[Rfam]
RNA sequence: CCGUGCUAGGUGGGGAAUUAGCGGUGCCCUGUAUUCGCAAUCCGCUCUAGCGAAACUGAAUCCCUUCUCGAGGCUGUACAUGUUGUAGGGUCUGCCUUCUGUAAGUGGUGUUGACAUUUGGGUCCUGCGCAAUGGGAAUUCAUGAACCAUGUCAGGUCCGGAAGGAAGCAGCAUUAAGUGAAAUCUCUCAUGUGCCGCAGGAUAGCCUGGAUCGAGCUAACUGCAGGAGUAACGCUUAUGGCUGUCAGUCGACAGAAGGUGCACGG
Number, nucleotide and partner (000 for none) at each position: 001c266002c265003g264004u263005g262006c261007u000008a000009g057010g056011u055012g030013g029014g028015g027016a000017a025018u024019u023020a000021g000022c000023g019024g018025u017026g000027c015028c014029c013030u012031g000032u000033a000034u054035u053036c052037g051038c050039a000040a000041u000042c000043c000044g000045c000046u000047c000048u000049a000050g038051c037052g036053a035054a034055a011056c010057u009058g000059a000060a000061u000062c000063c259064c258065u257066u256067c255068u254069c000070g000071a000072g250073g249074c248075u247076g246077u000078a000079c000080a000081u000082g242083u241084u240085g239086u238087a237088g236089g235090g000091u000092c000093u231094g230095c000096c000097u228098u227099c226100u225101g224102u223103a000104a000105g221106u220107g218108g217109u216110g000111u000112u000113g000114a000115c000116a212117u211118u210119u209120g208121g207122g206123u205124c201125c200126u199127g198128c197129g196130c192131a191132a000133u190134g189135g188136g187137a186138a000139u182140u181141c180142a179143u178144g000145a000146a000147c000148c000149a174150u173151g172152u171153c000154a000155g000156g000157u166158c165159c164160g000161g000162a000163a000164g159165g158166a157167a000168g000169c000170a000171g152172c151173a150174u149175u000176a000177a000178g143179u142180g141181a140182a139183a000184u000185c000186u137187c136188u135189c134190a133191u131192g130193u000194g000195c000196c129197g128198c127199a126200g125201g124202a000203u000204a000205g123206c122207c121208u120209g119210g118211a117212u116213c000214g000215a000216g109217c108218u107219a000220a106221c105222u000223g102224c101225a100226g099227g098228a097229g000230u094231a093232a000233c000234g000235c089236u088237u087238a086239u085240g084241g083242c082243u000244g000245u000246c076247a075248g074249u073250c072251g000252a000253c000254a068255g067256a066257a065258g064259g063260u000261g006262c005263a004264c003265g002266g001

Source information
This 266-nucleotide RNA sequence from Jeotgalibacillus sp. S-D1 belongs to the Rfam family "Bacterial large signal recognition particle RNA". It is annotated as a non-coding RNA gene. Pairs were carried over by alignment from the consensus structure, which is taken from published work. The source organism's lineage runs through Bacteria, Bacillati, Bacillota, Bacilli and Jeotgalibacillus. On this family, see Rosenblad et al., RNA Biol 2009: "Kinship in the SRP RNA family". A search with the family's covariance model found it, with a score of 236 bits.